Description:
The family of this 193-nucleotide RNA sequence from Ceratopteris richardii is "Listeria sRNA rliA". Taxonomically the source falls in Ceratopteris (Eukaryota, Viridiplantae, Polypodiidae, Polypodiales). For this family Rfam cites "Identification of new noncoding RNAs in Listeria monocytogenes and prediction of mRNA targets" (Mandin et al., Nucleic Acids Res, 2007). The family has 4 seed sequences and 15 matches in Rfam 15.1. It scores 52 bits against the family's covariance model.
RNA sequence: AUGCAUAUGCAUACAAGCAUGCAUAUGCAUACAAUUGUAUGCAUACAAUUGUAUGCAUACAAAUGUAUGCAUACAAUUGUAUGCAUACAAGCAUGCAUAUGCAUACAAUUGUAUGCAUACAAGCAUGCAUAUGCAUACAAUUGUAUGCAUACAUGAAUGCAUGUAUACAUAUGCAUACGUACAUACACAUAUA
Numbered sequence: 001a002u003g004c005a006u007a008u009g010c011a012u013a014c015a016a017g018c019a020u021g022c023a024u025a026u027g028c029a030u031a032c033a034a035u036u037g038u039a040u041g042c043a044u045a046c047a048a049u050u051g052u053a054u055g056c057a058u059a060c061a062a063a064u065g066u067a068u069g070c071a072u073a074c075a076a077u078u079g080u081a082u083g084c085a086u087a088c089a090a091g092c093a094u095g096c097a098u099a100u101g102c103a104u105a106c107a108a109u110u111g112u113a114u115g116c117a118u119a120c121a122a123g124c125a126u127g128c129a130u131a132u133g134c135a136u137a138c139a140a141u142u143g144u145a146u147g148c149a150u151a152c153a154u155g156a157a158u159g160c161a162u163g164u165a166u167a168c169a170u171a172u173g174c175a176u177a178c179g180u181a182c183a184u185a186c187a188c189a190u191a192u193a
Base pairs, nucleotide, nucleotide: 001030002029003028004027005026006025007024008023009022010021011020034184035183036179037178038177039176040175041174042173043132044131047078048077049076050075051074052073053072054071055070091128092127093126094125095124096123098121101116102115103114104113105112106111133148134147135146136145137144138143161170162169163168